[Rfam]
RNA: L31-Actinobacteria ribosomal protein leader
Organism: Plantactinospora sp. BB1
RNA sequence: CCGGUUCCGGUUCCCGCCCGAGUCCGCCAUCGCUCCGCGACACCCGUGUCGUGGCGUGGCUGACGGAUGCCGAGGGCGACCCGGCGACC
Numbered sequence: 001c002c003g004g005u006u007c008c009g010g011u012u013c014c015c016g017c018c019c020g021a022g023u024c025c026g027c028c029a030u031c032g033c034u035c036c037g038c039g040a041c042a043c044c045c046g047u048g049u050c051g052u053g054g055c056g057u058g059g060c061u062g063a064c065g066g067a068u069g070c071c072g073a074g075g076g077c078g079a080c081c082c083g084g085c086g087a088c089c
Base pairs, nucleotide, nucleotide: 003089004088005087007084008083009082010081015078016077017076018075019074